[Rfam]
Nucleotides: 166
Base pairs, nucleotide, nucleotide: 020051021050022049023048024047025046026045027044029042060091061090062089063088064087069080070079071078072077092109093108094107095106096105097104113156114155115154116153117152118151125142126141127140128139129138130137131136
Number, partner (000 for none) and nucleotide at each position: 001000u002000g003000a004000a005000a006000c007000g008000a009000u010000u011000a012000a013000g014000c015000g016000c017000c018000u019000g020051a021050a022049c023048u024047u025046g026045a027044a028000u029042g030000g031000g032000a033000c034000c035000g036000g037000a038000a039000a040000u041000g042029c043000a044027u045026u046025c047024a048023a049022g050021u051020u052000g053000a054000c055000g056000a057000g058000g059000a060091u061090g062089g063088g064087g065000a066000g067000u068000a069080u070079c071078g072077a073000a074000a075000a076000u077072u078071c079070g080069g081000c082000g083000g084000a085000u086000g087064c088063c089062c090061c091060a092109c093108g094107g095106u096105a097104g098000a099000c100000a101000g102000g103000a104097u105096u106095g107094c108093c109092g110000c111000a112000g113156g114155u115154a116153u117152u118151u119000u120000c121000a122000a123000a124000a125142c126141u127140c128139a129138a130137a131136a132000g133000u134000g135000a136131u137130u138129u139128u140127g141126a142125g143000g144000a145000c146000a147000a148000a149000g150000a151118a152117a153116a154115u155114a156113u157000u158000c159000a160000u161000c162000c163000u164000g165000a166000a

This 166-nucleotide RNA from Dethiosulfatibacter aminovorans belongs to the Rfam family "glmS glucosamine-6-phosphate activated ribozyme aptamer". The base pairs follow the family's consensus structure, which is taken from published work. About the family: This entry contains a glucosamine-6-phosphate activated ribozyme that is found in the mRNA for GlmS. GlmS is an enzyme that uses fructose-6-phosphate and glutamine to generate glucosamine-6-phosphate. It scores 114 bits against the family's covariance model.